[Rfam]
Nucleotides: 101
Stems, first nucleotide, its partner, number of pairs: 001101008013042005021031003025076004043068004048064002050061003077090005
Number, partner (000 for none) and nucleotide at each position: 001101u002100u003099c004098u005097u006096a007095u008094c009000u010000a011000g012000a013042g014041a015040a016039g017038c018000u019000g020000a021031g022030g023029g024000a025076c026075u027074g028073g029023c030022c031021c032000g033000u034000c035000g036000a037000a038017g039016c040015u041014u042013c043068a044067g045066c046065a047000a048064c049063c050061u051060g052059g053000c054000g055000c056000a057000a058000u059052c060051c061050a062000a063049g064048g065046u066045g067044c068043u069000a070000a071000u072000u073028c074027c075026a076025g077090c078089g079088a080087u081086g082000c083000a084000u085000c086081c087080a088079u089078c090077g091000g092000a093000c094008g095007a096006u097005a098004a099003g100002a101001a